[Rfam]
RNA sequence: CAUAAGUGGAGACCAGAACCCACUUUAAAAAACGGGGCGUAACCGAAAAGCCUUACGAUUAGGAAACUU
Numbered sequence: 001c002a003u004a005a006g007u008g009g010a011g012a013c014c015a016g017a018a019c020c021c022a023c024u025u026u027a028a029a030a031a032a033c034g035g036g037g038c039g040u041a042a043c044c045g046a047a048a049a050g051c052c053u054u055a056c057g058a059u060u061a062g063g064a065a066a067c068u069u
Base pairs, nucleotide, nucleotide: 006023007022008021009020036052037051038050043063044062